Shown here is a 93-nucleotide RNA from Ferroacidibacillus organovorans, a member of the family "c-di-GMP-I riboswitch aptamer". The base pairs follow the family's consensus structure, which is taken from published work. Clan: c-di-GMP_I riboswitch clan. A search with the family's covariance model found it, with a score of 57 bits.
RNA sequence: AACCCGAAAUCGCAAACCCGUUUGAAAUGCGGGGACGCAAAGUCUCAGUUCUAAGGCUGACCUCAAAUCGGCUAUGAAGGCUGGACCGCAGAA
Numbered sequence: 001a002a003c004c005c006g007a008a009a010u011c012g013c014a015a016a017c018c019c020g021u022u023u024g025a026a027a028u029g030c031g032g033g034g035a036c037g038c039a040a041a042g043u044c045u046c047a048g049u050u051c052u053a054a055g056g057c058u059g060a061c062c063u064c065a066a067a068u069c070g071g072c073u074a075u076g077a078a079g080g081c082u083g084g085a086c087c088g089c090a091g092a093a
Base pairs, nucleotide, nucleotide: 012038013037017033018032019031020030021029042086043085044084046083047082048081049078050077051076056072057071058070059069